RNA sequence: GCGCGAUAAAGGCAAAACUGUCAAAAGACAGCGGCGCAAAGCUAUAGGAUCUAAGGUAUUGCUGGUUGCAGUACUAUGAUAGCCUGGCUGCCGAA
Numbered sequence: 001g002c003g004c005g006a007u008a009a010a011g012g013c014a015a016a017a018c019u020g021u022c023a024a025a026a027g028a029c030a031g032c033g034g035c036g037c038a039a040a041g042c043u044a045u046a047g048g049a050u051c052u053a054a055g056g057u058a059u060u061g062c063u064g065g066u067u068g069c070a071g072u073a074c075u076a077u078g079a080u081a082g083c084c085u086g087g088c089u090g091c092c093g094a095a
Base pairs, nucleotide, nucleotide: 012037013036018031019030020029021028022027040089041088042087043086046085047084048083049080050079051078056074057073058072059071060070061069062068
Shown here is a 95-nucleotide sequence from Sinanaerobacter chloroacetimidivorans, a member of the family "c-di-GMP-I riboswitch aptamer". GEMM was predicted in a large-scale screen for bacterial structured RNA regulatory elements.